The record is a 115-nucleotide sequence from Lactobacillus xujianguonis, which matches "FMN riboswitch aptamer (RFN element)" in Rfam. Taxonomically the source falls in Lactobacillus (Bacteria, Bacillati, Bacillota, Lactobacillaceae).
[Rfam]
RNA sequence: UAUUGUCUUCAGGGCAGGGUGAAAGUCCCGACCGGCGGUAAAGUCCGCGACCCACGAAAGUGGUCGAAUCCUUAAAUAGGUACCGAUAGUAUAGUCUAGAUGGAAGAAGACAGAC
Number, nucleotide and partner (000 for none) at each position: 001u000002a000003u113004u112005g111006u110007c109008u108009u107010c106011a000012g000013g000014g000015c000016a000017g029018g028019g027020u000021g000022a000023a000024a000025g000026u000027c019028c018029c017030g000031a095032c094033c085034g084035g048036c047037g046038g045039u000040a000041a000042a000043g083044u082045c038046c037047g036048c035049g000050a000051c000052c063053c062054a000055c000056g000057a000058a000059a000060g000061u000062g053063g052064u000065c000066g000067a000068a081069u080070c079071c000072u000073u000074a000075a000076a000077u000078a000079g070080g069081u068082a044083c043084c034085g033086a000087u098088a097089g096090u000091a000092u000093a000094g032095u031096c089097u088098a087099g000100a000101u000102g000103g000104a000105a000106g010107a009108a008109g007110a006111c005112a004113g003114a000115c000
It scores 96 bits against the family's covariance model.